[Rfam]
RNA sequence: UCACUUUUCUAAGUACUAGUGCCGCAGGAGAUGGUACUUUUUAAAUAAAACUCCUGCUGCCCAAGUGCUUAUCAAAGAGA
Numbered sequence: 001u002c003a004c005u006u007u008u009c010u011a012a013g014u015a016c017u018a019g020u021g022c023c024g025c026a027g028g029a030g031a032u033g034g035u036a037c038u039u040u041u042u043a044a045a046u047a048a049a050a051c052u053c054c055u056g057c058u059g060c061c062c063a064a065g066u067g068c069u070u071a072u073c074a075a076a077g078a079g080a
Base pairs, nucleotide, nucleotide: 001080002079004077005076006075007074010071011070012069013068014067015066016065017064019062024057025056026055027054028053029052030051
Record summary:
Shown here is an 80-nucleotide RNA sequence from Lucilia cuprina, a member of the family "mir-252 microRNA precursor family". On this family, see Ruby et al., Cell 2006: "Large-scale sequencing reveals 21U-RNAs and additional microRNAs and endogenous siRNAs in C. elegans". The family is grouped with related families in Rfam's "mir-252 microRNA precursor family". Taxonomically the source falls in Lucilia (Eukaryota, Metazoa, Neoptera, Panorpida).